[Rfam]
The family of this 99-nucleotide sequence from Peribacillus saganii is "SAM riboswitch aptamer (S box leader)". Taxonomically the source falls in Peribacillus (Bacteria, Bacillati, Bacillota, Bacillaceae). About the family: The SAM riboswitch is found upstream of a number of genes which code for proteins involved in methionine or cysteine biosynthesis in Gram-positive bacteria.
RNA sequence: AUCUUAUCGAGAGAGGUGGAGGGACUGGCCCUUUGAAGCCUCAGCAACCGGCGGAUGCCAAGGUGCUAAUUCCAGCAAGCAUUGCUUGAUAGAUGAGGG
Numbered sequence: 001a002u003c004u005u006a007u008c009g010a011g012a013g014a015g016g017u018g019g020a021g022g023g024a025c026u027g028g029c030c031c032u033u034u035g036a037a038g039c040c041u042c043a044g045c046a047a048c049c050g051g052c053g054g055a056u057g058c059c060a061a062g063g064u065g066c067u068a069a070u071u072c073c074a075g076c077a078a079g080c081a082u083u084g085c086u087u088g089a090u091a092g093a094u095g096a097g098g099g
Stems, first nucleotide, its partner, number of pairs: 002098007013042005021031003025075004043067004048063002050059003071091001076088005